This 106-nucleotide sequence from Labrys okinawensis belongs to the Rfam family "Rhizobiales sRNA Atu_At1". The organism belongs to Labrys, within Bacteria. The literature on the family includes a 2012 paper in RNA Biol by Wilms et al., "Deep sequencing uncovers numerous small RNAs on all four replicons of the plant pathogen Agrobacterium tumefaciens". It scores 84 bits against the family's covariance model. By type it is a small RNA.

[Rfam]
RNA sequence: AUGCGCACGUGUCAACCGGACCUGGCAGUAGAGGGAACAGGGAUGGUUUUUCCGGUUUCCCGCCCUGACCAACGAAACGGUAGCCGAGCCCUUGUCCUGCCCGUGC
Numbered sequence: 001a002u003g004c005g006c007a008c009g010u011g012u013c014a015a016c017c018g019g020a021c022c023u024g025g026c027a028g029u030a031g032a033g034g035g036a037a038c039a040g041g042g043a044u045g046g047u048u049u050u051u052c053c054g055g056u057u058u059c060c061c062g063c064c065c066u067g068a069c070c071a072a073c074g075a076a077a078c079g080g081u082a083g084c085c086g087a088g089c090c091c092u093u094g095u096c097c098u099g100c101c102c103g104u105g106c
Stems, first nucleotide, its partner, number of pairs: 005106004011021003024101005032092004038067005045061001068081003